[Rfam]
RNA sequence: AUCUUAUCGAGAGAGACCGAGGGACAGGCCCUGUGACGUCCGGCAACCCCCAGCAAUGGGAAGGUGCCAAAUCCUACAGAAUGCAUCCGCAUUCUGAGAGAUAAGUC
Numbered sequence: 001a002u003c004u005u006a007u008c009g010a011g012a013g014a015g016a017c018c019g020a021g022g023g024a025c026a027g028g029c030c031c032u033g034u035g036a037c038g039u040c041c042g043g044c045a046a047c048c049c050c051c052a053g054c055a056a057u058g059g060g061a062a063g064g065u066g067c068c069a070a071a072u073c074c075u076a077c078a079g080a081a082u083g084c085a086u087c088c089g090c091a092u093u094c095u096g097a098g099a100g101a102u103a104a105g106u107c
Base pairs, nucleotide, nucleotide: 003105004104005103006102007101008100013041015040016039017038021031022030023029026075027074028073042068043067044066045065047064048063049060050059051058052057072099077096078095079094080093081092082091

A member of the RNA family "SAM riboswitch aptamer (S box leader)" from Planococcus lenghuensis, 107 nucleotides long. The family's consensus secondary structure is taken from published work.